[Rfam]
TD-1 RNA: a 122-nucleotide RNA from Treponema pedis. The organism belongs to Treponema pedis, within Bacteria.
RNA sequence: AAAACGCUGUCGAGUUUGCUUCGCAAACUUCUUAUUGUAUGCCGUUUCUCAUUGUAUUACGAAACGGCGGAAAUUCAUCAAUGCUCGAUUUUUGAUAAAAUCUGCGCUUGAUGAAUUUAAAC
Numbered sequence: 001a002a003a004a005c006g007c008u009g010u011c012g013a014g015u016u017u018g019c020u021u022c023g024c025a026a027a028c029u030u031c032u033u034a035u036u037g038u039a040u041g042c043c044g045u046u047u048c049u050c051a052u053u054g055u056a057u058u059a060c061g062a063a064a065c066g067g068c069g070g071a072a073a074u075u076c077a078u079c080a081a082u083g084c085u086c087g088a089u090u091u092u093u094g095a096u097a098a099a100a101u102c103u104g105c106g107c108u109u110g111a112u113g114a115a116u117u118u119a120a121a122c
Stems, first nucleotide, its partner, number of pairs: 012031002014028006041068008073116009083107002087102006